RcsR1 sRNA: a 95-nucleotide sequence from Pararhizobium antarcticum.
It is annotated as a small RNA.
RcsR1 (rhizobial cold and salinity stress riboregulator 1) trans-acting sRNA, formerly known as SmelC587, is a stress-related riboregulator, conserved in Sinorhizobium, Rhizobium and Agrobacterium.

RNA sequence: ACAUUGCAAUCUGGUGGUGGGCUCGCUAAAGCGGCCUUGACCAGUCAUGCGUGAUUGAGACGAUGAGCCGCCCGAAGUUUCGAGGCGGCUUUUUU
Numbered sequence: 001a002c003a004u005u006g007c008a009a010u011c012u013g014g015u016g017g018u019g020g021g022c023u024c025g026c027u028a029a030a031g032c033g034g035c036c037u038u039g040a041c042c043a044g045u046c047a048u049g050c051g052u053g054a055u056u057g058a059g060a061c062g063a064u065g066a067g068c069c070g071c072c073c074g075a076a077g078u079u080u081c082g083a084g085g086c087g088g089c090u091u092u093u094u095u
Base pairs, nucleotide, nucleotide: 011044012043013042014041015040017038019037020036021035022034024033025032026031048059050057051056065091066090067089068088069087070086071085072084073082074081075080